[Rfam]
Overview:
The family of this 110-nucleotide RNA sequence is "Actinomyces-1 RNA". It is one of the family's seed sequences. By type it is a small RNA.
RNA sequence: GGCGCCGCCGGACGAAGCGGGCCGCGAGGGUUGGGGAACCCGGUGACCGGGCCGCUAUCGAGGUCGGAACGGGUCUUAGGGAGCCCGGGCCGGACGCUCCGGUGAAGGAG
Numbered sequence: 001g002g003c004g005c006c007g008c009c010g011g012a013c014g015a016a017g018c019g020g021g022c023c024g025c026g027a028g029g030g031u032u033g034g035g036g037a038a039c040c041c042g043g044u045g046a047c048c049g050g051g052c053c054g055c056u057a058u059c060g061a062g063g064u065c066g067g068a069a070c071g072g073g074u075c076u077u078a079g080g081g082a083g084c085c086c087g088g089g090c091c092g093g094a095c096g097c098u099c100c101g102g103u104g105a106a107g108g109a110g
Stems, first nucleotide, its partner, number of pairs: 006104007013060003018054003022050003028041005062095001064093004070087005